[Rfam]
Annotation:
A member of the RNA family "skipping-rope RNA", 97 nucleotides long. It is one of the family's seed sequences. The family's RNA type in Rfam is small RNA.
Nucleotides: 097
Stems, first nucleotide, its partner, number of pairs: 001097008011033005023083005035064001037054002069089005
Number, partner (000 for none) and nucleotide at each position: 001097a002096u003095u004094a005093u006092c007091u008090a009000a010000g011033g012032u013031g014030g015029a016000a017000g018000a019000u020000u021000u022000c023083g024082u025081g026080c027079g028000a029015u030014c031013c032012a033011c034000a035064c036000g037054c038053c039000g040000a041000u042000g043000g044000u045000a046000u047000a048000g049000a050000c051000a052000g053038g054037g055000g056000a057000a058000a059000c060000c061000u062000a063000a064035g065000a066000g067000a068000u069089g070088c071087a072086g073085g074000a075000g076000a077000a078000g079027c080026g081025c082024a083023c084000g085073c086072c087071u088070g089069c090008u091007g092006g093005a094004u095003a096002a097001u